The record is a 111-nucleotide sequence from Malikia granosa, which matches "ZMP/ZTP riboswitch aptamer (pfl RNA motif)" in Rfam.
[Rfam]
RNA sequence: ACGCCCGUGCGCGACUGGCGAUAGGUCGGGGCUGGCCUUGCCGUCCCUGCCGAGGUGGGAUUACCACUGGGGAGCGCACAGCCAUUUCAGCCGUUCGCCUGGGCAGCCCCU
Numbered sequence: 001a002c003g004c005c006c007g008u009g010c011g012c013g014a015c016u017g018g019c020g021a022u023a024g025g026u027c028g029g030g031g032c033u034g035g036c037c038u039u040g041c042c043g044u045c046c047c048u049g050c051c052g053a054g055g056u057g058g059g060a061u062u063a064c065c066a067c068u069g070g071g072g073a074g075c076g077c078a079c080a081g082c083c084a085u086u087u088c089a090g091c092c093g094u095u096c097g098c099c100u101g102g103g104c105a106g107c108c109c110c111u
Base pairs, nucleotide, nucleotide: 003083005081007079008078009077010076011075012074015071016070017099018098019097020096021095055067056066057065058064088106090104091103092102
The organism belongs to Malikia, within Bacteria. For this family Rfam cites "Recognition of the bacterial alarmone ZMP through long-distance association of two RNA subdomains" (Jones and Ferre-D'Amare, Nat Struct Mol Biol, 2015). A search with the family's covariance model found it, with a score of 63 bits.